[Rfam]
RNA sequence: CGAUGUUCUCAGGGCGGGGUGGAAGUCCCCACCGGCGGUGAUGGUGGCGCCUGGCAACAGGCGCGACACAAGCCCGCGAGCGCCCGUCCACGCCCGUGGACGGGGUCAGCAGACCCGGUGUGAUCCCGGGGCCGACGGUCACAGUCCGGAUGAAAGAGAACCGCA
Numbered sequence: 001c002g003a004u005g006u007u008c009u010c011a012g013g014g015c016g017g018g019g020u021g022g023a024a025g026u027c028c029c030c031a032c033c034g035g036c037g038g039u040g041a042u043g044g045u046g047g048c049g050c051c052u053g054g055c056a057a058c059a060g061g062c063g064c065g066a067c068a069c070a071a072g073c074c075c076g077c078g079a080g081c082g083c084c085c086g087u088c089c090a091c092g093c094c095c096g097u098g099g100a101c102g103g104g105g106u107c108a109g110c111a112g113a114c115c116c117g118g119u120g121u122g123a124u125c126c127c128g129g130g131g132c133c134g135a136c137g138g139u140c141a142c143a144g145u146c147c148g149g150a151u152g153a154a155a156g157a158g159a160a161c162c163g164c165a
Stems, first nucleotide, its partner, number of pairs: 005161006017029003031145002033134002035077004072132002080110002114130005136148003
Dot-bracket structure: ....((((((......(((.......))).[[((((((.................................[[))))..((...........................))...(((((.......)))))]])).(((.....]]))).......))))))....